Staphylococcus sRNA sau-5949: a 57-nucleotide sequence from Staphylococcus massiliensis. The family's consensus secondary structure was predicted with mfold. The organism belongs to Staphylococcus massiliensis, within Bacteria.
RNA sequence: UUAUCUCCUUUUUGUUAGUUUGGUCACUUACAAUUAUAGAGAUAAAUGCGCUCUUUU
Dot-bracket structure: (((((((...((((...((......))...)))..)..)))))))............
A search with the family's covariance model found it, with a score of 62 bits.